[Rfam]
RNA sequence: AACUCAUUCUGCUGGUUGUUAUGCCAAACAUUGAAAUUUAAGCAUCACAACCUCCUAGAAAGAGUGGA
Numbered sequence: 001a002a003c004u005c006a007u008u009c010u011g012c013u014g015g016u017u018g019u020u021a022u023g024c025c026a027a028a029c030a031u032u033g034a035a036a037u038u039u040a041a042g043c044a045u046c047a048c049a050a051c052c053u054c055c056u057a058g059a060a061a062g063a064g065u066g067g068a
Stems, first nucleotide, its partner, number of pairs: 001065001003064003007060005014052002017049003021045003

This 68-nucleotide RNA sequence from Caenorhabditis brenneri belongs to the Rfam family "mir-67 microRNA precursor family". A reference for the family is Cao et al. (2008), "Identification of conserved microRNAs in Bombyx mori (silkworm) and regulation of fibroin L chain production by microRNAs in heterologous system", Insect Biochem Mol Biol. The sequence is in the family's curated seed alignment. The source organism's lineage runs through Eukaryota, Protostomia, Nematoda, Chromadorea and Caenorhabditis.